[Rfam]
RNA: Small nucleolar RNA SNORA73 family
Organism: Molossus molossus
Nucleotides: 185
Base pairs, nucleotide, nucleotide: 001106002105003104004103007100008045009044010043011042012041013037014036015035017030018029019028048098049097050096051095058091059090060089061086063084064083065082066079116175117174118173119172120171131163132162133161134160135159136158140150141149142148143147
Number, partner (000 for none) and nucleotide at each position: 001106u002105c003104a004103a005000c006000c007100u008045g009044g010043a011042u012041a013037c014036c015035c016000a017030g018029g019028a020000a021000g022000u023000c024000a025000c026000u027000g028019u029018c030017c031000c032000u033000g034000g035015g036014g037013g038000c039000u040000c041012u042011g043010u044009c045008c046000a047000a048098g049097u050096g051095g052000c053000a054000u055000a056000g057000g058091g059090g060089a061086g062000c063084a064083c065082a066079g067000g068000g069000c070000u071000c072000u073000g074000c075000c076000c077000u078000a079066u080000g081000a082065u083064g084063u085000a086061c087000a088000a089060u090059c091058u092000u093000u094000u095051c096050c097049a098048c099000c100007a101000a102000a103004u104003u105002g106001a107000g108000u109000c110000u111000g112000u113000g114000c115000c116175u117174g118173c119172a120171u121000a122000u123000u124000c125000c126000u127000a128000c129000a130000g131163u132162u133161u134160c135159u136158c137000a138000g139000a140150g141149u142148u143147c144000u145000g146000u147143g148142g149141a150140c151000a152000g153000u154000g155000a156000c157000u158136g159135a160134g161133g162132a163131g164000a165000c166000a167000a168000a169000c170000c171120a172119u173118g174117c175116a176000c177000a178000a179000a180000a181000c182000a183000u184000c185000u